Background: This 369-nucleotide sequence from Sanguibacter sp. HDW7 belongs to the Rfam family "transfer-messenger RNA". About the family: Bacterial tmRNA, also known as 10Sa RNA or SsrA, is named for its dual tRNA and mRNA-like properties. Its role is to liberate the mRNA from a stalled ribosome. The literature on the family includes a 1996 paper in RNA by Williams and Bartel, "Phylogenetic analysis of tmRNA secondary structure". Rfam classes the family as a non-coding RNA gene.
RNA sequence: GGGGGUGAUCGGUUUCGACGGUGGUCGUGCUUCGAGAAGAAGCGGGCCGAGGAUGCAGACUUAUCUCGUAAACGAUGUCUGCAAACCUAUAGGUGCCGAUUCCAAGCGCACCGACUUCGCCCUCGCCGCCUGAGCGAGCCUCGAAGUCCGUCAGUCCGGGCUAGCUUCCGUCCCGGGUCCUGGCGUCAUCCAGGAAGCCACUGCUCGCGUCGUUCGUCGCUGACGACGCGGGGACUCUUAGGCGACUGGGCCUGUCAGCUGAGCGUCUGCUCGAGGGCUGGGGCCGAGAAAAUCCACUAGCAGACUGCGCCCGGAGAAGAUCUGGAUACGCGUCACCGGACCGGGGUUCGAUUCCCCGCACCUCCACCC
Numbered sequence: 001g002g003g004g005g006u007g008a009u010c011g012g013u014u015u016c017g018a019c020g021g022u023g024g025u026c027g028u029g030c031u032u033c034g035a036g037a038a039g040a041a042g043c044g045g046g047c048c049g050a051g052g053a054u055g056c057a058g059a060c061u062u063a064u065c066u067c068g069u070a071a072a073c074g075a076u077g078u079c080u081g082c083a084a085a086c087c088u089a090u091a092g093g094u095g096c097c098g099a100u101u102c103c104a105a106g107c108g109c110a111c112c113g114a115c116u117u118c119g120c121c122c123u124c125g126c127c128g129c130c131u132g133a134g135c136g137a138g139c140c141u142c143g144a145a146g147u148c149c150g151u152c153a154g155u156c157c158g159g160g161c162u163a164g165c166u167u168c169c170g171u172c173c174c175g176g177g178u179c180c181u182g183g184c185g186u187c188a189u190c191c192a193g194g195a196a197g198c199c200a201c202u203g204c205u206c207g208c209g210u211c212g213u214u215c216g217u218c219g220c221u222g223a224c225g226a227c228g229c230g231g232g233g234a235c236u237c238u239u240a241g242g243c244g245a246c247u248g249g250g251c252c253u254g255u256c257a258g259c260u261g262a263g264c265g266u267c268u269g270c271u272c273g274a275g276g277g278c279u280g281g282g283g284c285c286g287a288g289a290a291a292a293u294c295c296a297c298u299a300g301c302a303g304a305c306u307g308c309g310c311c312c313g314g315a316g317a318a319g320a321u322c323u324g325g326a327u328a329c330g331c332g333u334c335a336c337c338g339g340a341c342c343g344g345g346g347u348u349c350g351a352u353u354c355c356c357c358g359c360a361c362c363u364c365c366a367c368c369c
Base pairs, nucleotide, nucleotide: 001365002364003363004362005361006360007359019338020337021336022335023334024333025332032326033325035323036322037321043313044312045311046310047309048068049067050066051065052064054083055082056081057080058079059078060077121146123144124143125142128139129138149185150184151183152182153181154180156176157175158174159173160172161170164198165197166196167195168194169193204232205231206230207229208228209227210226211225212224216246217245218244219243220242249285250284251283252282253281256280257279258278261272262271263270265305266304267303268302342358343357344356345355346354